[Rfam]
RNA sequence: UAAGUAAGACAGACAAUCGCGGAUGCAUGCGCCGAAAGGCCGCAGACGAGGAAAGUCCGGGCUUCGCAGGGCAGGAUGCCGGAUAACGUCCGGUGGAGGUGACUCCAAGGCCAGUGCAACAGAAAUAAACCGCCUGUACAAUGUACAGGUAAGGGUGGAAAGGCAGUGUAAGAGACUACCGCCCUUCUGGUAACAGAAGGGGCACAUGUAAACCCCAUCCGAAGCAAGACCGAAUAAAAGCUAUGCGGCUGCCCGUCGCGCUUUAGGUAGGUUGCUUGAACCUGACGGCAACGUCAGGUCUAGAUAGAUGAUUGUCCAAUGACAUAACCCGGCUUAUCGUUUUGCUUAAUUU
Numbered sequence: 001u002a003a004g005u006a007a008g009a010c011a012g013a014c015a016a017u018c019g020c021g022g023a024u025g026c027a028u029g030c031g032c033c034g035a036a037a038g039g040c041c042g043c044a045g046a047c048g049a050g051g052a053a054a055g056u057c058c059g060g061g062c063u064u065c066g067c068a069g070g071g072c073a074g075g076a077u078g079c080c081g082g083a084u085a086a087c088g089u090c091c092g093g094u095g096g097a098g099g100u101g102a103c104u105c106c107a108a109g110g111c112c113a114g115u116g117c118a119a120c121a122g123a124a125a126u127a128a129a130c131c132g133c134c135u136g137u138a139c140a141a142u143g144u145a146c147a148g149g150u151a152a153g154g155g156u157g158g159a160a161a162g163g164c165a166g167u168g169u170a171a172g173a174g175a176c177u178a179c180c181g182c183c184c185u186u187c188u189g190g191u192a193a194c195a196g197a198a199g200g201g202g203c204a205c206a207u208g209u210a211a212a213c214c215c216c217a218u219c220c221g222a223a224g225c226a227a228g229a230c231c232g233a234a235u236a237a238a239a240g241c242u243a244u245g246c247g248g249c250u251g252c253c254c255g256u257c258g259c260g261c262u263u264u265a266g267g268u269a270g271g272u273u274g275c276u277u278g279a280a281c282c283u284g285a286c287g288g289c290a291a292c293g294u295c296a297g298g299u300c301u302a303g304a305u306a307g308a309u310g311a312u313u314g315u316c317c318a319a320u321g322a323c324a325u326a327a328c329c330c331g332g333c334u335u336a337u338c339g340u341u342u343u344g345c346u347u348a349a350u351u352u
Stems, first nucleotide, its partner, number of pairs: 001348010011337001012316007020048002024044003053335003057332005062224004069254004074220005079093005094108001095106004109215002114213002116209003130154002132150008162180002165177003181203001182201008228273004238263004245259005280299008
RNA: Bacterial RNase P class A
Organism: Mediterraneibacter gnavus